[Rfam]
RNA sequence: AAAAAGUUCAUGCCGAAUUUCCUCACACUAAGGAAAGCGGGGGAACCAGUUAUGGGUGAAUUGAUCUUGCUUCAGAGGGAUCAUAGGGGGCCUUCUACCGAAUCCUUAAGCUAACCUCGCAGGCGCCGGAAGGGGUAUUU
Number, nucleotide and partner (000 for none) at each position: 001a000002a000003a000004a000005a000006g000007u000008u000009c000010a000011u125012g124013c123014c122015g000016a000017a000018u036019u035020u034021c033022c032023u031024c000025a000026c000027a000028c000029u000030a000031a023032g022033g021034a020035a019036a018037g120038c119039g118040g117041g116042g115043g000044a000045a000046c000047c000048a000049g000050u000051u000052a000053u000054g105055g104056g103057u000058g000059a000060a000061u000062u083063g082064a081065u080066c079067u078068u077069g000070c000071u000072u000073c000074a000075g000076a000077g068078g067079g066080a065081u064082c063083a062084u000085a000086g099087g098088g000089g000090g000091c000092c000093u000094u000095c000096u000097a000098c087099c086100g000101a000102a000103u056104c055105c054106u000107u000108a000109a000110g000111c000112u000113a000114a000115c042116c041117u040118c039119g038120c037121a000122g014123g013124c012125g011126c000127c000128g000129g000130a000131a000132g000133g000134g000135g000136u000137a000138u000139u000140u000
This 140-nucleotide RNA sequence from Paenibacillus rhizosphaerae belongs to the Rfam family "c-di-AMP riboswitch aptamer (ydaO/yuaA leader)".
It scores 67 bits against the family's covariance model.
This family represents a conserved RNA structure found upstream of the ydaO and yuaA genes in Bacillus subtilis and related genes in other bacteria. The ydaO/yuaA element is thought to act as a genetic 'off' switch for the ydaO and yuaA genes in its native state. It is believed that the element may be triggered during osmotic shock leading to activation of ydaO, a predicted amino acid transporter gene, and members of the yuaA-yubG operon which code for KtrA and KtrB K+ transporters.